This 113-nucleotide RNA sequence from Zizania palustris belongs to the Rfam family "mir-166 microRNA precursor family". A search with the family's covariance model found it, with a score of 62 bits. This family represents the plant microRNA (miRNA) precursor mir-166. A reference for the family is Reinhart et al. (2002), "MicroRNAs in plants", Genes Dev. Rfam links the family to the GO terms miRNA-mediated post-transcriptional gene silencing and RISC complex. The family's consensus secondary structure was predicted with PFOLD.
[Rfam]
RNA sequence: GUUGUGAGGAAUAUUGGCUGGCUCGAGGCAUCCACCGACCUUCAUCGACUCGGUCGGUUCCGGCCAUCCGGCGUAUGGAUCGAUGUGUCGGACCAGGCUUCAUUCCUCGCAAG
Numbered sequence: 001g002u003u004g005u006g007a008g009g010a011a012u013a014u015u016g017g018c019u020g021g022c023u024c025g026a027g028g029c030a031u032c033c034a035c036c037g038a039c040c041u042u043c044a045u046c047g048a049c050u051c052g053g054u055c056g057g058u059u060c061c062g063g064c065c066a067u068c069c070g071g072c073g074u075a076u077g078g079a080u081c082g083a084u085g086u087g088u089c090g091g092a093c094c095a096g097g098c099u100u101c102a103u104u105c106c107u108c109g110c111a112a113g
Base pairs, nucleotide, nucleotide: 002112003111004110005109006108007107008106009105010104011103012102016098018096019095020094021093024090025089026088